RNA sequence: AGAAAGUACCCAACCCCACCCCACCCGGCCCCGGUGGUCAGCUGCGGGACGGGCGUGUCACCCACACGGGUGAGAUUCUCCAACUGGGCUGGAUUUUGCACGGGUUGGCAGGCAUAUGCUCACGCUGACCAGCACACCCCAGACAUGAGACGGCCCCCGCCGGGACGGCAAUCCCGAACGAGGGCCUGACCUCCAAGGAAGGCAACAACUUCCCG
Numbered sequence: 001a002g003a004a005a006g007u008a009c010c011c012a013a014c015c016c017c018a019c020c021c022c023a024c025c026c027g028g029c030c031c032c033g034g035u036g037g038u039c040a041g042c043u044g045c046g047g048g049a050c051g052g053g054c055g056u057g058u059c060a061c062c063c064a065c066a067c068g069g070g071u072g073a074g075a076u077u078c079u080c081c082a083a084c085u086g087g088g089c090u091g092g093a094u095u096u097u098g099c100a101c102g103g104g105u106u107g108g109c110a111g112g113c114a115u116a117u118g119c120u121c122a123c124g125c126u127g128a129c130c131a132g133c134a135c136a137c138c139c140c141a142g143a144c145a146u147g148a149g150a151c152g153g154c155c156c157c158c159g160c161c162g163g164g165a166c167g168g169c170a171a172u173c174c175c176g177a178a179c180g181a182g183g184g185c186c187u188g189a190c191c192u193c194c195a196a197g198g199a200a201g202g203c204a205a206c207a208a209c210u211u212c213c214c215g
Stems, first nucleotide, its partner, number of pairs: 058073006088125002090122003152186005158180002162175004197213005
The record is a 215-nucleotide sequence from Streptomyces sp. SID8455, which matches "Streptomyces sRNA 4677" in Rfam. A reference for the family is Hindra et al. (2014), "Complex intra-operonic dynamics mediated by a small RNA in Streptomyces coelicolor", PLoS One. From the family's description: Located in the intergenic region between anti-sigma factor SCO4677 gene and a putative regulatory protein gene SCO4676. scr4677 expression requires the SCO4677 activity and scr4677 sRNA itself seem to affect the levels of the SCO4676-associated transcripts. The pairing is the family consensus, mapped onto this sequence. Rfam classes the family as a small RNA.